Shown here is an 85-nucleotide RNA sequence from Olea europaea, a member of the family "Small nucleolar RNA J33".
The organism belongs to Olea europaea, within Eukaryota.

[Rfam]
RNA sequence: CCGUGAGAGGGAUGAUGUAUUACUACAGGGCUCUUAAGAUGCUUUCUUUUCUUGAAUCUGCAUCAGAGAUGGAUAUGAGACAAGG
Numbered sequence: 001c002c003g004u005g006a007g008a009g010g011g012a013u014g015a016u017g018u019a020u021u022a023c024u025a026c027a028g029g030g031c032u033c034u035u036a037a038g039a040u041g042c043u044u045u046c047u048u049u050u051c052u053u054g055a056a057u058c059u060g061c062a063u064c065a066g067a068g069a070u071g072g073a074u075a076u077g078a079g080a081c082a083a084g085g
Stems, first nucleotide, its partner, number of pairs: 001085002004082002006076001
The match comes from Rfam's covariance-model search (78 bits). Rfam classes the family as a C/D-box small nucleolar RNA.